This 453-nucleotide part of an RNA from Sulfolobales archaeon HS-7 belongs to the Rfam family "Archaeal large subunit ribosomal RNA". It scores 2848 bits against the family's covariance model. On this family, see Yusupov et al., Science 2001: "Crystal structure of the ribosome at 5.5 A resolution".
RNA sequence: CCCCCCGAAGUGCGUCUUAGCGCAGCCUCACCGGAGGUUGUCGAUGGGGUAGAGUUACUGAUUGGGGGUGCAGAGGCCGAAAGGCCUCGAUCUCCAGUCAAACUCCGAACCUGUCGACUCCGUAGAUGGUGGGAGUAGGGCUACCCGGCGUAAGGUUGGGUGCCGUGAGGGGAACAACCCUGACCUAGGUUAAGGGCCCAAAUUGCCAGCUAAGUGCAUAUGAAGGGCGUCUCCAGCCAUAGACAGCGGGAAGGUGGGCCCAGCAGCAGCCAUCCUCUAAGGAGUGCGUAACAGCUCACCCGCCGAGGCUGGAGGUCCCGCAGAUUGGUCGGGGCUAAAGCUGGCACCCGAGACCUAGGAGUACCGUCUCAUUGGGGCGGUACUGGUAGGGGGGCGCUGGGGGUGGUCAGAAGGUGGGCCGUAAGGUCCAUUGGACCGCCUUCAGGUGCAGAU
Numbered sequence: 001c002c003c004c005c006c007g008a009a010g011u012g013c014g015u016c017u018u019a020g021c022g023c024a025g026c027c028u029c030a031c032c033g034g035a036g037g038u039u040g041u042c043g044a045u046g047g048g049g050u051a052g053a054g055u056u057a058c059u060g061a062u063u064g065g066g067g068g069u070g071c072a073g074a075g076g077c078c079g080a081a082a083g084g085c086c087u088c089g090a091u092c093u094c095c096a097g098u099c100a101a102a103c104u105c106c107g108a109a110c111c112u113g114u115c116g117a118c119u120c121c122g123u124a125g126a127u128g129g130u131g132g133g134a135g136u137a138g139g140g141c142u143a144c145c146c147g148g149c150g151u152a153a154g155g156u157u158g159g160g161u162g163c164c165g166u167g168a169g170g171g172g173a174a175c176a177a178c179c180c181u182g183a184c185c186u187a188g189g190u191u192a193a194g195g196g197c198c199c200a201a202a203u204u205g206c207c208a209g210c211u212a213a214g215u216g217c218a219u220a221u222g223a224a225g226g227g228c229g230u231c232u233c234c235a236g237c238c239a240u241a242g243a244c245a246g247c248g249g250g251a252a253g254g255u256g257g258g259c260c261c262a263g264c265a266g267c268a269g270c271c272a273u274c275c276u277c278u279a280a281g282g283a284g285u286g287c288g289u290a291a292c293a294g295c296u297c298a299c300c301c302g303c304c305g306a307g308g309c310u311g312g313a314g315g316u317c318c319c320g321c322a323g324a325u326u327g328g329u330c331g332g333g334g335c336u337a338a339a340g341c342u343g344g345c346a347c348c349c350g351a352g353a354c355c356u357a358g359g360a361g362u363a364c365c366g367u368c369u370c371a372u373u374g375g376g377g378c379g380g381u382a383c384u385g386g387u388a389g390g391g392g393g394g395c396g397c398u399g400g401g402g403g404u405g406g407u408c409a410g411a412a413g414g415u416g417g418g419c420c421g422u423a424a425g426g427u428c429c430a431u432u433g434g435a436c437c438g439c440c441u442u443c444a445g446g447u448g449c450a451g452a453u
Stems, first nucleotide, its partner, number of pairs: 001394006011024005026135001027133006036121002040118008052106001053104002060099010073088006139164003143161006169180003184359007194349003203346001205345006225319003229316010246303005252276003257271003277281001282297001286295002360384009395448001397445010413432008